[Rfam]
RNA sequence: GCCGGGGAUAGGGCGACGGCCUGACAAGUGCGACACACCCGCUCGCAUUUCCCCGGUUACUAUUGUGGG
Numbered sequence: 001g002c003c004g005g006g007g008a009u010a011g012g013g014c015g016a017c018g019g020c021c022u023g024a025c026a027a028g029u030g031c032g033a034c035a036c037a038c039c040c041g042c043u044c045g046c047a048u049u050u051c052c053c054c055g056g057u058u059a060c061u062a063u064u065g066u067g068g069g
Stems, first nucleotide, its partner, number of pairs: 001057008011022004028048005040069001042067001
A member of the RNA family "int-alpA RNA" from Qipengyuania algicida, 69 nucleotides long. It is annotated as a small RNA. Acidobacteria (1 example), Planctomycetes (1 example), Proteobacteria.